[Rfam]
RNA sequence: CGGGGGAAUGAGCAGACCCCCCGCCGCCAAGAUGCGCAAUGCAUCCAAGCGCUGC
Numbered sequence: 001c002g003g004g005g006g007a008a009u010g011a012g013c014a015g016a017c018c019c020c021c022c023g024c025c026g027c028c029a030a031g032a033u034g035c036g037c038a039a040u041g042c043a044u045c046c047a048a049g050c051g052c053u054g055c
Stems, first nucleotide, its partner, number of pairs: 001023006012055004031045005
Shown here is a 55-nucleotide RNA from Caenimonas sedimenti, a member of the family "chrB-b RNA". It scores 47 bits against the family's covariance model. Rfam classes the family as a cis-regulatory element. Pairs were carried over by alignment from the consensus structure, which is taken from published work. Taxonomically the source falls in Caenimonas (Bacteria, Pseudomonadati, Pseudomonadota, Betaproteobacteria).